[Rfam]
RNA sequence: AGUGUUAGUGAGUAGCUCUCUUAAAAAUUUAAGAGAGAGGAAAGUCCAUGCUUGCAUAGACUGAGAUGUCUAUAGUGUUUGUGUAAGUAUAUAAAAAAUAAAACUUAACAACUAAAGAAAUUUAGUUGAUGGCGGAGAUUAAUUCUAAGUAGAUUUCUAUAUGAACUAAUUUCUAUAAAGUGCCACAGAGACGAGUUUUGUAGAAAUACAAAAAGUGAAACGCGGUAAACCCCUCAAGCAAGAAACCUAAAUAAUGGUAAGGGACUUUAAGCUAAGAAAUUCAACGAAGCUUAAAAAUUUAGAAAUAAAUUAGAUUAAUUACUCACCUUUUUAACAAAAAGACAGAACAUGGCUUAUUCUC
Numbered sequence: 001a002g003u004g005u006u007a008g009u010g011a012g013u014a015g016c017u018c019u020c021u022u023a024a025a026a027a028u029u030u031a032a033g034a035g036a037g038a039g040g041a042a043a044g045u046c047c048a049u050g051c052u053u054g055c056a057u058a059g060a061c062u063g064a065g066a067u068g069u070c071u072a073u074a075g076u077g078u079u080u081g082u083g084u085a086a087g088u089a090u091a092u093a094a095a096a097a098a099u100a101a102a103a104c105u106u107a108a109c110a111a112c113u114a115a116a117g118a119a120a121u122u123u124a125g126u127u128g129a130u131g132g133c134g135g136a137g138a139u140u141a142a143u144u145c146u147a148a149g150u151a152g153a154u155u156u157c158u159a160u161a162u163g164a165a166c167u168a169a170u171u172u173c174u175a176u177a178a179a180g181u182g183c184c185a186c187a188g189a190g191a192c193g194a195g196u197u198u199u200g201u202a203g204a205a206a207u208a209c210a211a212a213a214a215g216u217g218a219a220a221c222g223c224g225g226u227a228a229a230c231c232c233c234u235c236a237a238g239c240a241a242g243a244a245a246c247c248u249a250a251a252u253a254a255u256g257g258u259a260a261g262g263g264a265c266u267u268u269a270a271g272c273u274a275a276g277a278a279a280u281u282c283a284a285c286g287a288a289g290c291u292u293a294a295a296a297a298u299u300u301a302g303a304a305a306u307a308a309a310u311u312a313g314a315u316u317a318a319u320u321a322c323u324c325a326c327c328u329u330u331u332u333a334a335c336a337a338a339a340a341g342a343c344a345g346a347a348c349a350u351g352g353c354u355u356a357u358u359c360u361c
Base pairs, nucleotide, nucleotide: 004361007357008326009325010324011323012322013321014320016037017036018035019034020033021032042355043354044353046352047351048350049349050348051242052241053240054239055238056073057072058071059070060069061068079237080236081235083233084107085106086105087104088103108130109128110127111126112125113124114123115122116121131232132231134174135173136172137171143165144164145163149160150159151158180230181229182226183225184224196213197212198211199210200209201208202207246262247261248260266295267294268293269292270291271290272289296311297310298309299308300307301306328340329339330338331337332336
RNA: Bacterial RNase P class B
Organism: Mycoplasma parvum